[Rfam]
RNA sequence: AGUUUAAUUACUCAAAUUUUAAGGUAAUUGAAGUAUUUUGGCCCAGAGUUUUGGCUGAUUUGGCUCAGAGUGAAAUUUUGGAACAUCCUGCAUCAGCGGAACAAC
Numbered sequence: 001a002g003u004u005u006a007a008u009u010a011c012u013c014a015a016a017u018u019u020u021a022a023g024g025u026a027a028u029u030g031a032a033g034u035a036u037u038u039u040g041g042c043c044c045a046g047a048g049u050u051u052u053g054g055c056u057g058a059u060u061u062g063g064c065u066c067a068g069a070g071u072g073a074a075a076u077u078u079u080g081g082a083a084c085a086u087c088c089u090g091c092a093u094c095a096g097c098g099g100a101a102c103a104a105c
Base pairs, nucleotide, nucleotide: 003032004031005030006029007028008027009026010025011024012023036070037069038068039067041064042063043062086101088099089098090097091096
Rfam assigns this 105-nucleotide sequence from Onchocerca ochengi to the family "SL1 RNA". This family represents the SL1 RNA. SL1 is commonly located in the spacer region between 5S-rRNA genes where it is involved in trans-splicing. Trans-splicing is a form of RNA processing. The acquisition of a spliced leader from a SL RNA is a intra-molecular reaction which precisely joins exons derived from separately transcribed RNAs. For this family Rfam cites "Trans-spliced leader RNA, 5S-rRNA genes and novel variant orphan spliced-leader of the lymphatic filarial nematode Wuchereria bancrofti, and a sensitive polymerase chain reaction based detection assay" (Dassanayake et al., Gene, 2001). Rfam links the family to the GO term mRNA trans splicing, via spliceosome.